[Rfam]
Selenocysteine transfer RNA: a 93-nucleotide RNA sequence from Andreesenia angusta. A reference for the family is Mizutani and Goto (2000), "Eukaryotic selenocysteine tRNA has the 9/4 secondary structure", FEBS Lett. Taxonomically the source falls in Andreesenia (Bacteria, Bacillota, Tissierellia, Gottschalkiaceae). Its Rfam clan is "tRNA clan".
RNA sequence: GGGGGUAGAUGAGUCCUGGUGGGCUCUCUGGUCUUCAAAACCAGCGUGAGGCGUUAAGAGCGUCUUAGGUGAGUUCGAUUCUCACAUACUCCC
Numbered sequence: 001g002g003g004g005g006u007a008g009a010u011g012a013g014u015c016c017u018g019g020u021g022g023g024c025u026c027u028c029u030g031g032u033c034u035u036c037a038a039a040a041c042c043a044g045c046g047u048g049a050g051g052c053g054u055u056a057a058g059a060g061c062g063u064c065u066u067a068g069g070u071g072a073g074u075u076c077g078a079u080u081c082u083c084a085c086a087u088a089c090u091c092c093c
Base pairs, nucleotide, nucleotide: 001093002092003091004090005089006088007087008085011026012025013024014023015022016021028044029043030042031041032040047067048066049065050064051063070084071083072082073081